A member of the RNA family "Iron response element II" from Piaya cayana, 32 nucleotides long. Rfam classes the family as a cis-regulatory element. The base pairs follow the family's consensus structure, which is taken from published work. Rfam's curators write: IRE, TFRC, SLC40A1, SDHB, SLC11A2, CDC42BPA, ACO2, ALAS2_H.SAPIENS, CDC14A, EPAS1, ALAS2, qoxD, Hao1, NDUFS1, transferrin, Aconitate. The literature on the family includes a 2001 paper in FEBS Lett by Gunshin et al., "Iron-dependent regulation of the divalent metal ion transporter". Rfam 15.1 lists 5,197 matches to the family in 722 species.
Nucleotides: 032
Base pairs, nucleotide, nucleotide: 001032002031003030004029005028006027007026009025010024011023012021013020014018
Number, partner (000 for none) and nucleotide at each position: 001032u002031g003030a004029u005028a006027u007026u008000c009025a010024g011023g012021g013020a014018c015000a016000g017000u018014g019000c020013u021012u022000a023011u024010c025009u026007a027006a028005u029004a030003u031002c032001a